[Rfam]
Rfam assigns this 89-nucleotide RNA sequence from Rhipicephalus microplus to the family "mir-5316 microRNA precursor family".
Its family is annotated with RISC complex and miRNA-mediated post-transcriptional gene silencing in the Gene Ontology.
RNA sequence: AUACCACGUGCAGGCUCGCGAAAAUGUUCAGGUUGGCAAUCAUUGAAUAACUUGUCACCGAGGCCUUUUCGACUAGCUUCCCAUGGCUU
Dot-bracket structure: ...(((.....(((((.(((((((.(((..(((.((((..............)))))))..))).)))))).).)))))....)))...